[Rfam]
RNA sequence: UUUUAGCAUUUGCAGACGUAAAAGAUUCAAAGCUGGUCGUGGACGUAACCACGUAAAAAAUCGUA
Numbered sequence: 001u002u003u004u005a006g007c008a009u010u011u012g013c014a015g016a017c018g019u020a021a022a023a024g025a026u027u028c029a030a031a032g033c034u035g036g037u038c039g040u041g042g043a044c045g046u047a048a049c050c051a052c053g054u055a056a057a058a059a060a061u062c063g064u065a
Stems, first nucleotide, its partner, number of pairs: 001018001003016002010030003014026001038053004
This 65-nucleotide sequence from Heyndrickxia oleronia belongs to the Rfam family "GP20-b RNA". By type it is a cis-regulatory element. NCBI's taxonomy places the organism under Bacteria, Bacillota, Bacilli, Bacillaceae, Heyndrickxia. The match comes from Rfam's covariance-model search (38 bits).